[Rfam]
RNA: Caulobacter sRNA CrfA
Organism: Brevundimonas sp. Root1423
RNA sequence: UCCCGUUGGUUCCACAGGGUAUUCAUUGACUGAGGCGUUUCGGGGAGGAAACGUCCGCUCGUCAAAGAGCGAAAAGAAGCCCGCCGCGAUGUAUCCCCCGCGGCGGGCUUUUUUGCGUC
Numbered sequence: 001u002c003c004c005g006u007u008g009g010u011u012c013c014a015c016a017g018g019g020u021a022u023u024c025a026u027u028g029a030c031u032g033a034g035g036c037g038u039u040u041c042g043g044g045g046a047g048g049a050a051a052c053g054u055c056c057g058c059u060c061g062u063c064a065a066a067g068a069g070c071g072a073a074a075a076g077a078a079g080c081c082c083g084c085c086g087c088g089a090u091g092u093a094u095c096c097c098c099c100g101c102g103g104c105g106g107g108c109u110u111u112u113u114u115g116c117g118u119c
Base pairs, nucleotide, nucleotide: 001033003032005030006029007028008024009023011021013019034055035054036053037052038051039050040049041048061119063117074113075112076111077110078109079108080107081106082105083104084103085102086101087100088099